[Rfam]
RNA sequence: UGAUGAUUGAGCGAUGAGGCUCGCUCUUGAACCAAACGCUGAUAAGCUGAUGGCCUCUACCAGAUU
Numbered sequence: 001u002g003a004u005g006a007u008u009g010a011g012c013g014a015u016g017a018g019g020c021u022c023g024c025u026c027u028u029g030a031a032c033c034a035a036a037c038g039c040u041g042a043u044a045a046g047c048u049g050a051u052g053g054c055c056u057c058u059a060c061c062a063g064a065u066u
Base pairs, nucleotide, nucleotide: 010025011024012023013022016057017056018055019054020053021052038047039046040045